The record is a 456-nucleotide RNA sequence from Fusarium torreyae, which matches "RNase MRP" in Rfam. Its family is annotated with ribonuclease MRP complex, ribonuclease MRP activity and rRNA processing in the Gene Ontology. The family is grouped with related families in Rfam's "RNaseP clan". It is annotated as a ribozyme.

RNA sequence: CCCUCGCUCAAUAAAUCGCCAUUCGAAGCUCACAAACAGAGACGCUGCUUUCGGGCAGCGUCUUAUAUCCUCUUUAUGGCUUUGGGAGAAAGUCCCCGGACGUCUUCGUUUCGACGGAGCUUGCGGAAACGCGCCGCCAUAGAAGCACAGCGGCUGACCUCUGCACCCAGGCCCUCUCCCUGCGCCGGCCCUGCCUUCCGCUACAUCUGCUUGUCCAGCGCCUUGAAUUUCACCCUUCUCAAUGCUCUCGGUCCUCUUGGAUGAAGAUAUGAGUCCGCUGCCGAGUUGUGGGGGGUUUCGUGCGAUGACGGGUGUCUGGCUCGUGGAUGGUGGGUAGACGCUUUGGUGCUCGUGGGCGUGGCAUCGGGUCGCAGAGGACUUGUUGUCGAGGUUGAUAGGUAUGCGAUUGCCCGGCGAAAGCUGGGUUACUCAAUGGGGCUCAUUCUUGAUGCGAGG
Numbered sequence: 001c002c003c004u005c006g007c008u009c010a011a012u013a014a015a016u017c018g019c020c021a022u023u024c025g026a027a028g029c030u031c032a033c034a035a036a037c038a039g040a041g042a043c044g045c046u047g048c049u050u051u052c053g054g055g056c057a058g059c060g061u062c063u064u065a066u067a068u069c070c071u072c073u074u075u076a077u078g079g080c081u082u083u084g085g086g087a088g089a090a091a092g093u094c095c096c097c098g099g100a101c102g103u104c105u106u107c108g109u110u111u112c113g114a115c116g117g118a119g120c121u122u123g124c125g126g127a128a129a130c131g132c133g134c135c136g137c138c139a140u141a142g143a144a145g146c147a148c149a150g151c152g153g154c155u156g157a158c159c160u161c162u163g164c165a166c167c168c169a170g171g172c173c174c175u176c177u178c179c180c181u182g183c184g185c186c187g188g189c190c191c192u193g194c195c196u197u198c199c200g201c202u203a204c205a206u207c208u209g210c211u212u213g214u215c216c217a218g219c220g221c222c223u224u225g226a227a228u229u230u231c232a233c234c235c236u237u238c239u240c241a242a243u244g245c246u247c248u249c250g251g252u253c254c255u256c257u258u259g260g261a262u263g264a265a266g267a268u269a270u271g272a273g274u275c276c277g278c279u280g281c282c283g284a285g286u287u288g289u290g291g292g293g294g295g296u297u298u299c300g301u302g303c304g305a306u307g308a309c310g311g312g313u314g315u316c317u318g319g320c321u322c323g324u325g326g327a328u329g330g331u332g333g334g335u336a337g338a339c340g341c342u343u344u345g346g347u348g349c350u351c352g353u354g355g356g357c358g359u360g361g362c363a364u365c366g367g368g369u370c371g372c373a374g375a376g377g378a379c380u381u382g383u384u385g386u387c388g389a390g391g392u393u394g395a396u397a398g399g400u401a402u403g404c405g406a407u408u409g410c411c412c413g414g415c416g417a418a419a420g421c422u423g424g425g426u427u428a429c430u431c432a433a434u435g436g437g438g439c440u441c442a443u444u445c446u447u448g449a450u451g452c453g454a455g456g
Stems, first nucleotide, its partner, number of pairs: 002456006008449004014408006023086001024084006039064011091440002094438004122133004337379001339377001341374002344371002349368004410425006